[Rfam]
RNA sequence: AAGCGUUCUCAGGGCGGGGUGCAAUUCCCCACCGGCGGUGAUGGCGGGGCAACCCGCACAAGCCCGCGAGCGCCUUGCACGCCACCGUGCAAGGGUCAGCAGAUCCGGUGCGAUCCCGGAGCCGACGGUUGGAACGUGUUCGGUCUCGAACACGCUCCUAAAGUCCGGAUGAAAGAGAGCGCGA
Numbered sequence: 001a002a003g004c005g006u007u008c009u010c011a012g013g014g015c016g017g018g019g020u021g022c023a024a025u026u027c028c029c030c031a032c033c034g035g036c037g038g039u040g041a042u043g044g045c046g047g048g049g050c051a052a053c054c055c056g057c058a059c060a061a062g063c064c065c066g067c068g069a070g071c072g073c074c075u076u077g078c079a080c081g082c083c084a085c086c087g088u089g090c091a092a093g094g095g096u097c098a099g100c101a102g103a104u105c106c107g108g109u110g111c112g113a114u115c116c117c118g119g120a121g122c123c124g125a126c127g128g129u130u131g132g133a134a135c136g137u138g139u140u141c142g143g144u145c146u147c148g149a150a151c152a153c154g155c156u157c158c159u160a161a162a163g164u165c166c167g168g169a170u171g172a173a174a175g176a177g178a179g180c181g182c183g184a
Stems, first nucleotide, its partner, number of pairs: 003182008017029003033124002035067004062122002070100002104120005126167003